[Rfam]
RNA sequence: CCCUGCAACAGAUGGCGUGAAGGGCGGUCGGCAUUCCCUCCGGAAAGGAGGUGAUGCCAUGGAAGUAUAUCAAACACUCACACUGAUGAUAUCCUUCGGAACAUUGGUGGUUUUGAUACUUUCUUUCCACAAACGGAAAUAGACCGCCCCAACUCACAUGGAUAACGGUCUAUCCGUAUUCAUCUGCCGACCGCCCCUAAGGCGGCUGUUGCGGGGAAUCAUGUUACUGCAUGAUUC
Numbered sequence: 001c002c003c004u005g006c007a008a009c010a011g012a013u014g015g016c017g018u019g020a021a022g023g024g025c026g027g028u029c030g031g032c033a034u035u036c037c038c039u040c041c042g043g044a045a046a047g048g049a050g051g052u053g054a055u056g057c058c059a060u061g062g063a064a065g066u067a068u069a070u071c072a073a074a075c076a077c078u079c080a081c082a083c084u085g086a087u088g089a090u091a092u093c094c095u096u097c098g099g100a101a102c103a104u105u106g107g108u109g110g111u112u113u114u115g116a117u118a119c120u121u122u123c124u125u126u127c128c129a130c131a132a133a134c135g136g137a138a139a140u141a142g143a144c145c146g147c148c149c150c151a152a153c154u155c156a157c158a159u160g161g162a163u164a165a166c167g168g169u170c171u172a173u174c175c176g177u178a179u180u181c182a183u184c185u186g187c188c189g190a191c192c193g194c195c196c197c198u199a200a201g202g203c204g205g206c207u208g209u210u211g212c213g214g215g216g217a218a219u220c221a222u223g224u225u226a227c228u229g230c231a232u233g234a235u236u237c
Base pairs, nucleotide, nucleotide: 001216002215003214004213005212007210008209009208011206013189014188015187016186017185019155020154022150023149024148026145027144028143029142032053033052035050037048038047039046061123062122063121064120065119066118067117075088076087099114100113101112165177166176167175191205192204193203194202219234220233221232222231223230224229
RNA: BsrG
Organism: Dehalobacter sp. 12DCB1